[Rfam]
Rfam assigns this 58-nucleotide RNA from Morus notabilis to the family "Plastid-psbA-3 3UTR RNA". It scores 62 bits against the family's covariance model. Plastid psbA-3 is a non-coding RNA (ncRNA) present in plastids. It was identified in inverted repeat sequences in the 3 prime untranslate region (3UTR) of photosystem II quinone-binding protein (psbA). Pairs were carried over by alignment from the consensus structure, which was predicted with LocARNA. It is annotated as a cis-regulatory element. The literature on the family includes a 2023 paper in Plant Commun by Richter et al., "Retrograde signaling in plants: A critical review focusing on the GUN pathway and beyond".

RNA sequence: AAAGGAGCAAUACCAAACUUCGUGAUAGAACAAGAAGUUUGGUAUUGCUCCUUUUUUU
Numbered sequence: 001a002a003a004g005g006a007g008c009a010a011u012a013c014c015a016a017a018c019u020u021c022g023u024g025a026u027a028g029a030a031c032a033a034g035a036a037g038u039u040u041g042g043u044a045u046u047g048c049u050c051c052u053u054u055u056u057u058u
Base pairs, nucleotide, nucleotide: 001054002053003052004051005050006049007048008047009046010045011044012043013042014041019036020035021034023032024031